Notes:
A member of the RNA family "Small nucleolar RNA MBII-202" from Chiloscyllium punctatum, 85 nucleotides long.
[Rfam]
RNA sequence: UGAUGAAACUUUCUUCGGAAAUCUCUGCACAUCGUUGAUGAUUUUUGUUGAACCUUCUCCAUCUGAUGACUGUGGCAGUGUCAUU
Numbered sequence: 001u002g003a004u005g006a007a008a009c010u011u012u013c014u015u016c017g018g019a020a021a022u023c024u025c026u027g028c029a030c031a032u033c034g035u036u037g038a039u040g041a042u043u044u045u046u047g048u049u050g051a052a053c054c055u056u057c058u059c060c061a062u063c064u065g066a067u068g069a070c071u072g073u074g075g076c077a078g079u080g081u082c083a084u085u
Base pairs, nucleotide, nucleotide: 002085003084004083005082006081
On this family, see Huttenhofer et al., EMBO J 2001: "RNomics: an experimental approach that identifies 201 candidates for novel, small, non-messenger RNAs in mouse".
It is annotated as a C/D-box small nucleolar RNA.